[Rfam]
RNA sequence: GUGCAUAUGAUGAUCAAGUAACAGUAUGAUUAAAAACAUGAUACUGUAAACGCUUUCUGAUGCA
Numbered sequence: 001g002u003g004c005a006u007a008u009g010a011u012g013a014u015c016a017a018g019u020a021a022c023a024g025u026a027u028g029a030u031u032a033a034a035a036a037c038a039u040g041a042u043a044c045u046g047u048a049a050a051c052g053c054u055u056u057c058u059g060a061u062g063c064a
Stems, first nucleotide, its partner, number of pairs: 002064004012056002017054003022046006
RNA: Small nucleolar RNA Z39